The family of this 116-nucleotide sequence from Argiope bruennichi is "U5 spliceosomal RNA". U5 RNA is a component of both types of known spliceosome. The precise function of this molecule is unknown, though it is known that the 5' loop is required for splice site selection and p220 binding, and that both the 3' stem-loop and the Sm site are important for Sm protein binding and cap methylation. Taxonomically the source falls in Argiope (Eukaryota, Arthropoda, Araneae, Araneoidea). The base pairs follow the family's consensus structure, which is taken from published work.
[Rfam]
Nucleotides: 116
Stems, first nucleotide, its partner, number of pairs: 003081002005078001009065010027052006034046001098116001100115006
Number, partner (000 for none) and nucleotide at each position: 001000a002000u003081g004080c005078c006000u007000g008000g009065u010064u011063u012062c013061u014060c015059u016058u017057c018056a019000a020000a021000a022000u023000g024000u025000g026000c027052u028051a029050a030049u031048c032047u033000u034046u035000c036000g037000c038000c039000u040000u041000u042000u043000u044000c045000u046034a047032a048031g049030a050029u051028u052027a053000c054000c055000g056018u057017g058016g059015a060014g061013a062012g063011g064010a065009a066000a067000c068000c069000c070000c071000a072000a073000u074000u075000a076000a077000u078005g079000a080004g081003c082000c083000c084000a085000u086000c087000c088000c089000a090000a091000a092000u093000u094000u095000u096000g097000g098116a099000a100115u101114c102113c103112c104111g105110c106000u107000u108000c109000g110105g111104u112103g113102g114101g115100a116098u